RNA sequence: ACAGUACAAACUGAGCAGGCGAUCCAUACAGGGGUGAUACUCAGUAUGAAUGGGGCCGGGCCGCGGACGCGGCAGCAGAUGAAGAGGAAGAAUCUGUGGGACAGUU
Numbered sequence: 001a002c003a004g005u006a007c008a009a010a011c012u013g014a015g016c017a018g019g020c021g022a023u024c025c026a027u028a029c030a031g032g033g034g035u036g037a038u039a040c041u042c043a044g045u046a047u048g049a050a051u052g053g054g055g056c057c058g059g060g061c062c063g064c065g066g067a068c069g070c071g072g073c074a075g076c077a078g079a080u081g082a083a084g085a086g087g088a089a090g091a092a093u094c095u096g097u098g099g100g101a102c103a104g105u106u
Stems, first nucleotide, its partner, number of pairs: 010105004016100001018057003022051002025048005060073005075097006
This 106-nucleotide RNA from Faecalicatena orotica belongs to the Rfam family "NiCo (Nickel/Cobalt) riboswitch aptamer". Its Rfam clan is "NiCo_riboswitches". Rfam links the family to the GO terms cobalt ion binding and metal ion homeostasis. Lineage of the source: Bacteria > Bacillati > Bacillota > Lachnospirales > Faecalicatena.